Rfam assigns this 130-nucleotide sequence from Columbina picui to the family "Small Cajal body specific RNA 15".
The family is grouped with related families in Rfam's "SCARNA4 clan".
About the family: scaRNAs are a specific class of small nuclear RNAs which localise to the Cajal bodies and guide the modification of RNA polymerase II transcribed spliceosomal RNAs U1, U2, U4, U5 and U12.
It is annotated as a small Cajal body RNA.
Its family is annotated with nucleolus, Cajal body and RNA processing in the Gene Ontology.
On this family, see Darzacq et al., EMBO J 2002: "Cajal body-specific small nuclear RNAs: a novel class of 2'-O-methylation and pseudouridylation guide RNAs".
Pairs were carried over by alignment from the consensus structure, which was predicted with RNAfold.
[Rfam]
RNA sequence: CCGGAGGACUAAGAAAGUGGAGCCAGUCACGUUAUAUUGGCUCCACUGAUACUAUCCUCCCAAAUUAACGGUGGAAGAACAAGGCCUGCCUGUGAGAUAAAGUCAGGACCUACUUCAUCUGCCUACAGGA
Numbered sequence: 001c002c003g004g005a006g007g008a009c010u011a012a013g014a015a016a017g018u019g020g021a022g023c024c025a026g027u028c029a030c031g032u033u034a035u036a037u038u039g040g041c042u043c044c045a046c047u048g049a050u051a052c053u054a055u056c057c058u059c060c061c062a063a064a065u066u067a068a069c070g071g072u073g074g075a076a077g078a079a080c081a082a083g084g085c086c087u088g089c090c091u092g093u094g095a096g097a098u099a100a101a102g103u104c105a106g107g108a109c110c111u112a113c114u115u116c117a118u119c120u121g122c123c124u125a126c127a128g129g130a
Stems, first nucleotide, its partner, number of pairs: 003060006010051002018045007026035002070123006077116001082111003085107004